[Rfam]
SR1 sRNA: a 215-nucleotide RNA sequence from Mesobacillus boroniphilus. Rfam classes the family as a small RNA. NCBI's taxonomy places the organism under Bacteria, Bacillati, Bacilli, Caryophanales, Mesobacillus boroniphilus. The family's consensus secondary structure is taken from published work.
RNA sequence: UAGAAAUUAUUAAAAGCGCUUUCAAAAUUCAAUACGAAAAGGAGUUUGAAAAUAUGGGAACAAUCGUUUGUCAAACUUGCAAUGCAACAAUUGACCAUUUCGAAGAUGAGAAAGUAACGGUUUUAUAUUCAAAAAAAUGUAACUGCUGCGACCAUGAAGGUGCAGAGGAAAGAUAAAAAUAGAUAAAAGGGCAUGCAUACUGCAUGCCCUUCUUU
Numbered sequence: 001u002a003g004a005a006a007u008u009a010u011u012a013a014a015a016g017c018g019c020u021u022u023c024a025a026a027a028u029u030c031a032a033u034a035c036g037a038a039a040a041g042g043a044g045u046u047u048g049a050a051a052a053u054a055u056g057g058g059a060a061c062a063a064u065c066g067u068u069u070g071u072c073a074a075a076c077u078u079g080c081a082a083u084g085c086a087a088c089a090a091u092u093g094a095c096c097a098u099u100u101c102g103a104a105g106a107u108g109a110g111a112a113a114g115u116a117a118c119g120g121u122u123u124u125a126u127a128u129u130c131a132a133a134a135a136a137a138u139g140u141a142a143c144u145g146c147u148g149c150g151a152c153c154a155u156g157a158a159g160g161u162g163c164a165g166a167g168g169a170a171a172g173a174u175a176a177a178a179a180u181a182g183a184u185a186a187a188a189g190g191g192c193a194u195g196c197a198u199a200c201u202g203c204a205u206g207c208c209c210u211u212c213u214u215u
Stems, first nucleotide, its partner, number of pairs: 016115002020112003025107001028104003032100001034098001036096001055090001057088001061084002067082002144154002185213001187211011